[Rfam]
RNA sequence: UUUUAAGUGUAAGUAUGUCCCAUGCGAAAUUUGGGACAUACAUAUAUUAAAA
Numbered sequence: 001u002u003u004u005a006a007g008u009g010u011a012a013g014u015a016u017g018u019c020c021c022a023u024g025c026g027a028a029a030u031u032u033g034g035g036a037c038a039u040a041c042a043u044a045u046a047u048u049a050a051a052a
Stems, first nucleotide, its partner, number of pairs: 006048006014040003018036004022031001
The record is a 52-nucleotide RNA from Leptonychotes weddellii, which matches "mir-1302 microRNA precursor family" in Rfam. Rfam 15.1 lists 16,160 matches to the family in 135 species. The base pairs follow the family's consensus structure, which was predicted with WAR. A search with the family's covariance model found it, with a score of 66 bits. Rfam links the family to the GO terms miRNA-mediated post-transcriptional gene silencing and RISC complex.